Background:
This 108-nucleotide sequence from Aotus nancymaae belongs to the Rfam family "Y RNA".
RNA sequence: GGCCGGUCCGAAGGUAGCAAGUUAUCUCGAUUGUUCACAGUCAGUUACAGAUCGAACUCCUUGUUCUACUGUUUCCCCCUUCUCACAACUGCACUUGACUAGUCUUAA
Numbered sequence: 001g002g003c004c005g006g007u008c009c010g011a012a013g014g015u016a017g018c019a020a021g022u023u024a025u026c027u028c029g030a031u032u033g034u035u036c037a038c039a040g041u042c043a044g045u046u047a048c049a050g051a052u053c054g055a056a057c058u059c060c061u062u063g064u065u066c067u068a069c070u071g072u073u074u075c076c077c078c079c080u081u082c083u084c085a086c087a088a089c090u091g092c093a094c095u096u097g098a099c100u101a102g103u104c105u106u107a108a
Base pairs, nucleotide, nucleotide: 001104002103003102005100006099007098008097010096011095014092015091017086020083021082039070040069041068043067044066

It scores 58 bits against the family's covariance model. NCBI's taxonomy places the organism under Eukaryota, Euteleostomi, Eutheria, Platyrrhini, Aotus. Y RNAs are components of the Ro ribonucleoprotein particle (Ro RNP), in association with Ro60 and La proteins. The Y RNAs and Ro60 and La proteins are well conserved, but the function of the Ro RNP is not known. In humans the RNA component can be one of four small RNAs -- hY1, hY3, hY4 and hY5. A reference for the family is Teunissen et al. (2000), "Conserved features of Y RNAs: a comparison of experimentally derived secondary structures", Nucleic Acids Res. The base pairs follow the family's consensus structure, which is taken from published work.